[Rfam]
RNA: Small nucleolar RNA SNORD59
Organism: Atlantisia rogersi
RNA sequence: CCUCCUGUCAUGAUGUUGCCAUGACUUUCGUUCUCCUGAGCGUGCUGAAGCAACGGAUUUCGAUCUGAGGGGG
Numbered sequence: 001c002c003u004c005c006u007g008u009c010a011u012g013a014u015g016u017u018g019c020c021a022u023g024a025c026u027u028u029c030g031u032u033c034u035c036c037u038g039a040g041c042g043u044g045c046u047g048a049a050g051c052a053a054c055g056g057a058u059u060u061c062g063a064u065c066u067g068a069g070g071g072g073g
Base pairs, nucleotide, nucleotide: 001073002072003071005069